[Rfam]
Record summary: Rfam assigns this 201-nucleotide RNA from Anaerofilum sp. An201 to the family "Group II catalytic intron D1-D4-5". The organism belongs to Anaerofilum, within Bacteria. Group II introns are found in rRNA, tRNA and mRNA of organelles in fungi, plants and protists, and also in mRNA in bacteria. Its family is annotated with Group II intron splicing in the Gene Ontology.
RNA sequence: CAGAACUAAUGGCCCGAUGGGUGGAAUGACGGGGUAACGCCCUGAAACGCCCACACUGAUACUCCGACUGGCGCAGAUGAAGCAAAUAAAUCUGUGUCAGAAGCUCGGUGAAGUCGGCAGAGAGCAACCGUAAAUCAUAGUCUAUGAUACGAAACCUGUCCAGAGGUGGAUGGUGUUGCCUAUAUGCCGGGUGUCUCAUGU
Numbered sequence: 001c002a003g004a005a006c007u008a009a010u011g012g013c014c015c016g017a018u019g020g021g022u023g024g025a026a027u028g029a030c031g032g033g034g035u036a037a038c039g040c041c042c043u044g045a046a047a048c049g050c051c052c053a054c055a056c057u058g059a060u061a062c063u064c065c066g067a068c069u070g071g072c073g074c075a076g077a078u079g080a081a082g083c084a085a086a087u088a089a090a091u092c093u094g095u096g097u098c099a100g101a102a103g104c105u106c107g108g109u110g111a112a113g114u115c116g117g118c119a120g121a122g123a124g125c126a127a128c129c130g131u132a133a134a135u136c137a138u139a140g141u142c143u144a145u146g147a148u149a150c151g152a153a154a155c156c157u158g159u160c161c162a163g164a165g166g167u168g169g170a171u172g173g174u175g176u177u178g179c180c181u182a183u184a185u186g187c188c189g190g191g192u193g194u195c196u197c198a199u200g201u
Stems, first nucleotide, its partner, number of pairs: 018053006031043004054193004064108004068100011115189005124179005129151003135147004156173007